[Rfam]
RNA sequence: UUUAGUUUCCUUGUUCUUAAAAUAAGGUGGUGCGGAUGGGAUUAUCUCCCGCCAGGUUUCUUGUUUCCUGUAAAAGAACAAGUGGCGUGCAUGUAA
Numbered sequence: 001u002u003u004a005g006u007u008u009c010c011u012u013g014u015u016c017u018u019a020a021a022a023u024a025a026g027g028u029g030g031u032g033c034g035g036a037u038g039g040g041a042u043u044a045u046c047u048c049c050c051g052c053c054a055g056g057u058u059u060c061u062u063g064u065u066u067c068c069u070g071u072a073a074a075a076g077a078a079c080a081a082g083u084g085g086c087g088u089g090c091a092u093g094u095a096a
Stems, first nucleotide, its partner, number of pairs: 009027007037051005053070004060082006

A member of the RNA family "wcaG RNA", 96 nucleotides long.
By type it is a cis-regulatory element.
Pairs were carried over by alignment from the consensus structure, which is taken from published work.
The sequence is in the family's curated seed alignment.